[Rfam]
RNA sequence: UUGUUAAGUGAUGAUGUGACAUACAGAAUGUCACAUCAUCACACCUUACCAUUGACACAUCAUUGUCACGUUAUCACCUUCAAUGAUGUGUCAAUGAUAUGUUAGUGAUUAGGCUUGAUAAUGUGACACUCCGUCUGUCACGUCAUCACUUUACGAGG
Numbered sequence: 001u002u003g004u005u006a007a008g009u010g011a012u013g014a015u016g017u018g019a020c021a022u023a024c025a026g027a028a029u030g031u032c033a034c035a036u037c038a039u040c041a042c043a044c045c046u047u048a049c050c051a052u053u054g055a056c057a058c059a060u061c062a063u064u065g066u067c068a069c070g071u072u073a074u075c076a077c078c079u080u081c082a083a084u085g086a087u088g089u090g091u092c093a094a095u096g097a098u099a100u101g102u103u104a105g106u107g108a109u110u111a112g113g114c115u116u117g118a119u120a121a122u123g124u125g126a127c128a129c130u131c132c133g134u135c136u137g138u139c140a141c142g143u144c145a146u147c148a149c150u151u152u153a154c155g156a157g158g
Stems, first nucleotide, its partner, number of pairs: 001156004006151016023134002026131002029128008038119004044113003048109001050107003054103004070087005
The record is a 158-nucleotide sequence from Glycine max, which matches "MIR4371 microRNA precursor family" in Rfam.
The family's consensus secondary structure was predicted with RNAalifold.
Rfam 15.1 lists 321 matches to the family in 4 species.
Rfam links the family to the GO terms RISC complex and miRNA-mediated post-transcriptional gene silencing.